[Rfam]
RNA: GA-cis RNA
RNA sequence: AUGAGGAGAAACCAAUAUGACGAAGUCAUAUUUUAGGAUGGUUUCGACGACCUGCCGCCGAGCGCAGGCGAGGGGGCGAUACAUAUA
Numbered sequence: 001a002u003g004a005g006g007a008g009a010a011a012c013c014a015a016u017a018u019g020a021c022g023a024a025g026u027c028a029u030a031u032u033u034u035a036g037g038a039u040g041g042u043u044u045c046g047a048c049g050a051c052c053u054g055c056c057g058c059c060g061a062g063c064g065c066a067g068g069c070g071a072g073g074g075g076g077c078g079a080u081a082c083a084u085a086u087a
Stems, first nucleotide, its partner, number of pairs: 008045006015031006054077003058073002062069002